RNA sequence: AGAUCAUCAAGAGCGGCAGAGGGACUGGCCCUAUGAAGCCCGGCAACCUCUCUAUUUUUAGAGAAGGUGCUAAUUCCAGCAUUUCCUUUUAGGAAAUGAGAGAUGAGAG
Numbered sequence: 001a002g003a004u005c006a007u008c009a010a011g012a013g014c015g016g017c018a019g020a021g022g023g024a025c026u027g028g029c030c031c032u033a034u035g036a037a038g039c040c041c042g043g044c045a046a047c048c049u050c051u052c053u054a055u056u057u058u059u060a061g062a063g064a065a066g067g068u069g070c071u072a073a074u075u076c077c078a079g080c081a082u083u084u085c086c087u088u089u090u091a092g093g094a095a096a097u098g099a100g101a102g103a104u105g106a107g108a109g
Base pairs, nucleotide, nucleotide: 004106005105006104007103008102013041015040016039017038021031022030023029025079026078027077028076042071043070044069045068047067048066049064050063051062052061075101080098081097082096083095084094085093
RNA: SAM riboswitch aptamer (S box leader)
Organism: Halonatronomonas betaini